This 136-nucleotide RNA sequence from Salinisphaera japonica belongs to the Rfam family "RtT RNA". About the family: This family represents a bacterial cis-regulatory element known as RtT RNA. The exact function of RtT is unknown although it is thought that it may be involved in changing the cellular response in relation to amino acid starvation. The base pairs follow the family's consensus structure, which is taken from published work. Its family is annotated with cellular response to amino acid starvation in the Gene Ontology. The family has 57 seed sequences and 651 matches in Rfam 15.1. A search with the family's covariance model found it, with a score of 56 bits.

RNA sequence: GGCGAAGAGGCAUCCAGGGGGUUUUCGAACCGAUAGAGGUUCGACGGCGCAGCGAAAGCUGCGACGAACAACACGCAAGGCGUGUUGGCCCGAAGGGUGAAGCGCUAAGCGCUGAAUAAUCCUCCUCCCUCCACCA
Numbered sequence: 001g002g003c004g005a006a007g008a009g010g011c012a013u014c015c016a017g018g019g020g021g022u023u024u025u026c027g028a029a030c031c032g033a034u035a036g037a038g039g040u041u042c043g044a045c046g047g048c049g050c051a052g053c054g055a056a057a058g059c060u061g062c063g064a065c066g067a068a069c070a071a072c073a074c075g076c077a078a079g080g081c082g083u084g085u086u087g088g089c090c091c092g093a094a095g096g097g098u099g100a101a102g103c104g105c106u107a108a109g110c111g112c113u114g115a116a117u118a119a120u121c122c123u124c125c126u127c128c129c130u131c132c133a134c135c136a
Base pairs, nucleotide, nucleotide: 016126017125018124019123020122021121023119034099035098040094041093042092043091047062048061069087070086071085072084073083074082